[Rfam]
RNA sequence: CCGUUCUCGUGUUAUUUGUUGAACUAUUUUUCAAGGUUCAAUGAUUGUCAAGAAGAACGCAAAUUAAAAUUAAAGUCAGACUCCACAAUGUUCAGCUUUUAACUCUAAAGCUAUGACAUUACUAAAUGCUGGCUACAUUU
Numbered sequence: 001c002c003g004u005u006c007u008c009g010u011g012u013u014a015u016u017u018g019u020u021g022a023a024c025u026a027u028u029u030u031u032c033a034a035g036g037u038u039c040a041a042u043g044a045u046u047g048u049c050a051a052g053a054a055g056a057a058c059g060c061a062a063a064u065u066a067a068a069a070u071u072a073a074a075g076u077c078a079g080a081c082u083c084c085a086c087a088a089u090g091u092u093c094a095g096c097u098u099u100u101a102a103c104u105c106u107a108a109a110g111c112u113a114u115g116a117c118a119u120u121a122c123u124a125a126a127u128g129c130u131g132g133c134u135a136c137a138u139u140u
Stems, first nucleotide, its partner, number of pairs: 002059006010050002016044007087120005094112004
The family of this 140-nucleotide RNA sequence from Scaptodrosophila lebanonensis is "Small nucleolar RNA psi18S-1377". NCBI's taxonomy places the organism under Eukaryota, Protostomia, Pterygota, Neoptera, Scaptodrosophila. Rfam's curators write: psi18S-1377 is a member of the H/ACA class of snoRNA. This family is responsible for guiding the modification of uridines 1377 and 1279 to pseudouridine in Drosophila 18S rRNA. The match comes from Rfam's covariance-model search (109 bits). The family's consensus secondary structure was predicted with RNAalifold. It is annotated as an H/ACA-box small nucleolar RNA.